[Rfam]
Nucleotides: 073
Base pairs, nucleotide, nucleotide: 002047003046004045005044006043007042008041021034022033023032024031
Number, partner (000 for none) and nucleotide at each position: 001000g002047a003046a004045u005044c006043c007042g008041a009000g010000g011000a012000g013000c014000g015000u016000u017000g018000c019000a020000a021034g022033g023032c024031c025000a026000g027000u028000u029000a030000g031024g032023g033022c034021c035000c036000c037000a038000g039000g040000c041008u042007u043006g044005g045004a046003u047002u048000c049000c050000c051000g052000g053000a054000c055000c056000u057000a058000a059000c060000g061000g062000c063000g064000c065000u066000c067000a068000c069000c070000g071000a072000a073000u

This 73-nucleotide RNA from an Oligoflexia bacterium belongs to the Rfam family "SAH (S-adenosyl-L-homocysteine) riboswitch aptamer". The literature on the family includes a 2008 paper in Mol Cell by Wang et al., "Riboswitches that sense S-adenosylhomocysteine and activate genes involved in coenzyme recycling". Pairs were carried over by alignment from the consensus structure, which is taken from published work. The match comes from Rfam's covariance-model search (53 bits).